Shown here is a 312-nucleotide RNA sequence from Aegotheles bennettii, a member of the family "7SK RNA". About the family: 7SK was discovered as an abundant small nuclear RNA in the mid-70s but a possible function has only recently been suggested. Two independent studies have found that 7SK RNA binds the CDK9/cyclin T complex (known as elongation factor P-TEFb). P-TEFb activates transcription by phosphorylating the C-terminal domain of RNA polymerase II. This process is negatively regulated by the 7SK RNP. The secondary structure of 7SK RNA shown here was proposed by Wasserman and Steitz on the basis of chemical modification and enzymatic cleavage experiments. The literature on the family includes a 2002 paper in Curr Biol by Blencowe, "Transcription: surprising role for an elusive small nuclear RNA". The family has 45 seed sequences and 49,373 matches in Rfam 15.1. Pairs were carried over by alignment from the consensus structure, which is taken from published work. A search with the family's covariance model found it, with a score of 252 bits. It is annotated as a non-coding RNA gene.

RNA sequence: GGAUGUGAGGGCGAUCUGGCUGCGACAUCUGUCACCCCAUUGAUCGCCAGGGUUGAUUCGGCUGAUCUGGCUGGCUAGGCGGGUGUCCCCUUCCUCCCUCACCGCUCCAUGUGCAUCCCUCCCGAAGCUGCGCACUCGGUCGAAGAGGACAACCUUCCCCGAUAGAGACGUACCGUUCAUCGGUCAAGAGUAUACGGUAGCUGCGCUCCCCUGCUAGAACCUCCAAACAAGCUGUGUGAUUCUGUGGCCUUGGAUAGGGCCUAGAUUAUUGACAUAUUCUGAAAAUUGGUAUGUCUUGGUUGUUAUUAAUUA
Numbered sequence: 001g002g003a004u005g006u007g008a009g010g011g012c013g014a015u016c017u018g019g020c021u022g023c024g025a026c027a028u029c030u031g032u033c034a035c036c037c038c039a040u041u042g043a044u045c046g047c048c049a050g051g052g053u054u055g056a057u058u059c060g061g062c063u064g065a066u067c068u069g070g071c072u073g074g075c076u077a078g079g080c081g082g083g084u085g086u087c088c089c090c091u092u093c094c095u096c097c098c099u100c101a102c103c104g105c106u107c108c109a110u111g112u113g114c115a116u117c118c119c120u121c122c123c124g125a126a127g128c129u130g131c132g133c134a135c136u137c138g139g140u141c142g143a144a145g146a147g148g149a150c151a152a153c154c155u156u157c158c159c160c161g162a163u164a165g166a167g168a169c170g171u172a173c174c175g176u177u178c179a180u181c182g183g184u185c186a187a188g189a190g191u192a193u194a195c196g197g198u199a200g201c202u203g204c205g206c207u208c209c210c211c212u213g214c215u216a217g218a219a220c221c222u223c224c225a226a227a228c229a230a231g232c233u234g235u236g237u238g239a240u241u242c243u244g245u246g247g248c249c250u251u252g253g254a255u256a257g258g259g260c261c262u263a264g265a266u267u268a269u270u271g272a273c274a275u276a277u278u279c280u281g282a283a284a285a286u287u288g289g290u291a292u293g294u295c296u297u298g299g300u301u302g303u304u305a306u307u308a309a310u311u312a
Stems, first nucleotide, its partner, number of pairs: 001108003005102007013093002018090002024087010035074002037070003042067004046062003117170001119167003122139004127135001140162003147158003200260003206257002210253002213250001223247002231245001280312003284307003288303001289300002